[Rfam]
Nucleotides: 114
Base pairs, nucleotide, nucleotide: 001078002077003076004075009038011037012036013035014034015033016032022029039064040063041062044060045059046058048055049054081102082101083100084099087096089094
Number, partner (000 for none) and nucleotide at each position: 001078g002077g003076u004075c005000a006000c007000g008000a009038g010000u011037g012036c013035c014034g015033g016032c017000g018000c019000a020000a021000a022029g023000a024000u025000c026000c027000g028000g029022c030000g031000u032016g033015c034014c035013g036012g037011c038009c039064g040063g041062c042000a043000c044060c045059c046058u047000c048055c049054u050000g051000c052000a053000c054049a055048g056000c057000g058046g059045g060044g061000u062041g063040c064039c065000c066000c067000g068000g069000a070000g071000c072000g073000a074000c075004g076003a077002c078001c079000g080000g081102g082101g083100c084099g085000a086000g087096c088000c089094u090000g091000g092000g093000c094089g095000u096087g097000a098000g099084c100083g101082c102081c103000g104000a105000a106000g107000g108000g109000u110000u111000c112000c113000a114000c
Overview
Rfam assigns this 114-nucleotide sequence from Nocardiopsis ansamitocini to the family "SAM (S-adenosyl methionine) riboswitch aptamer". On this family, see Weinberg et al., RNA 2008: "The aptamer core of SAM-IV riboswitches mimics the ligand-binding site of SAM-I riboswitches". Rfam's curators write: SAM-IV is a mRNA element that regulates gene expression via direct sensing of S-adenosylmethionine (SAM or AdoMet). SAM-IV riboswitches share conserved nucleotide positions with the previously described SAM-I riboswitches sequence analysis and molecular recognition experiments suggest that SAM-I and SAM-IV riboswitches share similar ligand binding sites, but have different scaffolds.